[Rfam]
RNA sequence: CGAUUGCGUGAAGGAUCGCAGUGGAAAUCCUCCCGUUUUUCAGGGAGAUUGUAACGUAGAGCCUGACCCUUG
Numbered sequence: 001c002g003a004u005u006g007c008g009u010g011a012a013g014g015a016u017c018g019c020a021g022u023g024g025a026a027a028u029c030c031u032c033c034c035g036u037u038u039u040u041c042a043g044g045g046a047g048a049u050u051g052u053a054a055c056g057u058a059g060a061g062c063c064u065g066a067c068c069c070u071u072g
Stems, first nucleotide, its partner, number of pairs: 012064003016060002021055002026050004032045003
Flavo-1 RNA: a 72-nucleotide RNA sequence from Flavobacterium muglaense. It is annotated as a small RNA. Taxonomically the source falls in Flavobacterium (Bacteria, Bacteroidota, Flavobacteriia, Flavobacteriales).